[Rfam]
RNA: Mammalian CPEB3 ribozyme
RNA sequence: AGUUGCUAACAGCCAUAGCAGAAGUGGUCACAUGAUGGUCGUAUCAGAUUCUAACAAAUCUGCAAAUUCUGCU
Numbered sequence: 001a002g003u004u005g006c007u008a009a010c011a012g013c014c015a016u017a018g019c020a021g022a023a024g025u026g027g028u029c030a031c032a033u034g035a036u037g038g039u040c041g042u043a044u045c046a047g048a049u050u051c052u053a054a055c056a057a058a059u060c061u062g063c064a065a066a067u068u069c070u071g072c073u
Stems, first nucleotide, its partner, number of pairs: 013038002017073007024036002045062006